Shown here is a 108-nucleotide RNA sequence from Klebsiella indica, a member of the family "ES222 sRNA". On this family, see Rau et al., BMC Genomics 2015: "Differential expression of small RNAs under chemical stress and fed-batch fermentation in E. coli". By type it is a small RNA. Rfam's curators write: Differentially expressed under several chemical stress and fermentation conditions. NCBI's taxonomy places the organism under Bacteria, Gammaproteobacteria, Enterobacterales, Enterobacteriaceae, Klebsiella.
RNA sequence: GGUGCUUUUACGUGAGCGUGAAGCACUUUUUUGGUGCAAAAUAAUUUUAAUAACCCUUUUAACGCUCCGUGAAAGCGAUCACAAAGAAUCUCUGCAAUACUUGUUUGC
Number, nucleotide and partner (000 for none) at each position: 001g000002g026003u025004g024005c023006u022007u021008u000009u020010a019011c018012g017013u000014g000015a000016g000017c012018g011019u010020g009021a007022a006023g005024c004025a003026c002027u103028u000029u000030u000031u099032u000033g000034g000035u096036g095037c094038a093039a000040a000041a000042u000043a000044a000045u085046u084047u083048u000049a000050a079051u078052a000053a000054c000055c000056c000057u075058u074059u073060u072061a000062a070063c069064g068065c000066u000067c000068c064069g063070u062071g000072a060073a059074a058075g057076c000077g000078a051079u050080c000081a000082c000083a047084a046085a045086g000087a000088a000089u000090c000091u000092c000093u038094g037095c036096a035097a000098u000099a031100c000101u000102u000103g027104u000105u000106u000107g000108c000